[Rfam]
Nucleotides: 178
Stems, first nucleotide, its partner, number of pairs: 003064005009059001015052008024043003074171004083140002086138001089135002150165001152163002
Number, partner (000 for none) and nucleotide at each position: 001000u002000a003064u004063g005062c006061c007060u008000u009059c010000a011000g012000a013000a014000u015052a016051a017050c018049c019048g020047g021046a022045c023000g024043g025042a026041g027000c028000a029000a030000g031000g032000a033000u034000a035000u036000g037000c038000a039000g040000u041026c042025u043024c044000u045022g046021u047020u048019c049018g050017g051016u052015u053000c054000a055000g056000a057000c058000a059009g060007a061006g062005g063004c064003a065000c066000a067000a068000a069000a070000u071000g072000a073000g074171u075170g076169a077168g078000a079000g080000a081000g082000a083140a084139a085000a086138g087000u088000g089135a090134g091000u092000c093000u094000c095000u096000c097000a098000g099000u100000c101000u102000c103000u104000c105000c106000c107000c108000u109000g110000a111000a112000u113000c114000a115000g116000c117000u118000u119000u120000u121000u122000a123000a124000g125000u126000g127000u128000a129000a130000g131000g132000a133000a134090c135089u136000a137000g138086u139084u140083u141000c142000c143000u144000u145000u146000c147000u148000a149000u150165g151000u152163u153162c154000c155000u156000u157000u158000c159000u160000u161000a162153g163152a164000u165150u166000g167000c168077u169076u170075c171074a172000g173000a174000u175000a176000u177000a178000u